[Rfam]
Nucleotides: 101
Stems, first nucleotide, its partner, number of pairs: 010088001012086004018080002021077005027071006034065002037062004042057003
Number, partner (000 for none) and nucleotide at each position: 001000u002000c003000u004000g005000a006000g007000c008000c009000c010088u011000c012086g013085g014084c015083c016000g017000u018080g019079a020000c021077u022076c023075c024074c025073a026000g027071c028070u029069g030068c031067u032066c033000g034065u035064g036000c037062c038061c039060u040059g041000u042057c043056g044055c045000c046000a047000c048000u049000u050000c051000c052000c053000c054000g055044g056043u057042g058000c059040c060039a061038g062037g063000u064035c065034g066032g067031a068030g069029c070028g071027g072000a073025u074024g075023g076022g077021g078000a079019u080018c081000a082000g083015g084014g085013c086012c087000u088010g089000g090000g091000g092000a093000c094000c095000a096000g097000g098000a099000c100000c101000g
mraW RNA: a 101-nucleotide sequence from Microbacterium trichothecenolyticum. Lineage of the source: Bacteria > Bacillati > Actinomycetes > Micrococcales > Microbacterium. Rfam classes the family as a cis-regulatory element. Pairs were carried over by alignment from the consensus structure, which is taken from published work.